The record is a 196-nucleotide sequence from Chaetomium globosum, which matches "U2 spliceosomal RNA" in Rfam. About the family: U2 is a small nuclear RNA (snRNA) component of the spliceosome (involved in pre-mRNA splicing). Pairs were carried over by alignment from the consensus structure, which is taken from published work. It is annotated as a spliceosomal small nuclear RNA. Taxonomically the source falls in Chaetomium globosum (Eukaryota, sordariomyceta, Sordariomycetes, Sordariomycetidae).

RNA sequence: UUAGCUCUCUUUGCCUUUUGGCUUAGAUCAAGUGUAGUAUCUGUUCUUUUCAGUUUAAUCUCUGAAACUGCUCUACGGAGUAGAUUUAUUUGAUUAAAUUAAUUUUUGUCCCUCGGGACUCAGUCCACUCGGCUUGCCGAGCCUGAAUCCCACCGUGUCUCCAGUAUUACACUGCCUCUGGACGACGCAAACCUUU
Numbered sequence: 001u002u003a004g005c006u007c008u009c010u011u012u013g014c015c016u017u018u019u020g021g022c023u024u025a026g027a028u029c030a031a032g033u034g035u036a037g038u039a040u041c042u043g044u045u046c047u048u049u050u051c052a053g054u055u056u057a058a059u060c061u062c063u064g065a066a067a068c069u070g071c072u073c074u075a076c077g078g079a080g081u082a083g084a085u086u087u088a089u090u091u092g093a094u095u096a097a098a099u100u101a102a103u104u105u106u107u108g109u110c111c112c113u114c115g116g117g118a119c120u121c122a123g124u125c126c127a128c129u130c131g132g133c134u135u136g137c138c139g140a141g142c143c144u145g146a147a148u149c150c151c152a153c154c155g156u157g158u159c160u161c162c163a164g165u166a167u168u169a170c171a172c173u174g175c176c177u178c179u180g181g182a183c184g185a186c187g188c189a190a191a192c193c194u195u196u
Stems, first nucleotide, its partner, number of pairs: 008027003013022003048067006068083006115151004120146003129140004155188005160182005